[Rfam]
RNA sequence: CGUAACCACAAGGGGAGCUAAUUGCUGAGAGUGAACACAUAGUUGUUCUGACCCUUCGAACCUGUUAGUCAAUUCUAGCGUAGGAAUGUGGCAUGAGUAGAAU
Numbered sequence: 001c002g003u004a005a006c007c008a009c010a011a012g013g014g015g016a017g018c019u020a021a022u023u024g025c026u027g028a029g030a031g032u033g034a035a036c037a038c039a040u041a042g043u044u045g046u047u048c049u050g051a052c053c054c055u056u057c058g059a060a061c062c063u064g065u066u067a068g069u070c071a072a073u074u075c076u077a078g079c080g081u082a083g084g085a086a087u088g089u090g091g092c093a094u095g096a097g098u099a100g101a102a103u
Base pairs, nucleotide, nucleotide: 006091007090008089009088010087011055012054013053014052016049017025018024033048034047035046036045061084062083063082064081065078066077067076068075
RNA: TPP riboswitch aptamer (THI element)
Organism: Cytobacillus dafuensis